[Rfam]
RNA sequence: AUGAAGAAUUUGAAGACUUCCAACUUGUAGACGUGAAGAAUUUGAAGACUUCCACUUGCAUACUUGGAGGAUUUGAAGACUUCAACU
Numbered sequence: 001a002u003g004a005a006g007a008a009u010u011u012g013a014a015g016a017c018u019u020c021c022a023a024c025u026u027g028u029a030g031a032c033g034u035g036a037a038g039a040a041u042u043u044g045a046a047g048a049c050u051u052c053c054a055c056u057u058g059c060a061u062a063c064u065u066g067g068a069g070g071a072u073u074u075g076a077a078g079a080c081u082u083c084a085a086c087u
Base pairs, nucleotide, nucleotide: 002084003083004082005081006080009077010076011075012074013073014072017069018068019067021066022065026060027059028058029057035052036051037050038049